[Rfam]
The family of this 76-nucleotide RNA sequence from Myotis myotis is "mir-9229 microRNA precursor family". The family has 7 seed sequences and 27,225 matches in Rfam 15.1. Pairs were carried over by alignment from the consensus structure, which was predicted with RNAalifold. Taxonomically the source falls in Myotis (Eukaryota, Bilateria, Vertebrata, Yangochiroptera). The match comes from Rfam's covariance-model search (82 bits).
RNA sequence: GGGACACCACUGUGGAGCACAACUUGCUUCAGUGGGGCUUUGGUGCUCACUGAGUCUGCUCCUUGAGUGUGUCUCU
Numbered sequence: 001g002g003g004a005c006a007c008c009a010c011u012g013u014g015g016a017g018c019a020c021a022a023c024u025u026g027c028u029u030c031a032g033u034g035g036g037g038c039u040u041u042g043g044u045g046c047u048c049a050c051u052g053a054g055u056c057u058g059c060u061c062c063u064u065g066a067g068u069g070u071g072u073c074u075c076u
Base pairs, nucleotide, nucleotide: 001075002074003073004072005071006070007069011065012064014062015061016060017059018058019057022055023054029053030052031051032050033049034048035047036046037044038043